[Rfam]
RNA: Ribosomal protein L10 leader
Organism: Myxacorys almedinensis
RNA sequence: CUAACUAAAUAUUCCAAACCAAAGAUAGCAGGGGCUUUAGGCUUAAUGUCCUGCCGAGGUUUGAUUUCUCGUCUGCCGCUUUGCAACGGCACGUAGAAAUUAAGCGACCUCGGUUUACCCAAAUCGAGGUUUUUUGUUUGGAAU
Numbered sequence: 001c002u003a004a005c006u007a008a009a010u011a012u013u014c015c016a017a018a019c020c021a022a023a024g025a026u027a028g029c030a031g032g033g034g035c036u037u038u039a040g041g042c043u044u045a046a047u048g049u050c051c052u053g054c055c056g057a058g059g060u061u062u063g064a065u066u067u068c069u070c071g072u073c074u075g076c077c078g079c080u081u082u083g084c085a086a087c088g089g090c091a092c093g094u095a096g097a098a099a100u101u102a103a104g105c106g107a108c109c110u111c112g113g114u115u116u117a118c119c120c121a122a123a124u125c126g127a128g129g130u131u132u133u134u135u136g137u138u139u140g141g142a143a144u
Stems, first nucleotide, its partner, number of pairs: 028054006034042003107130010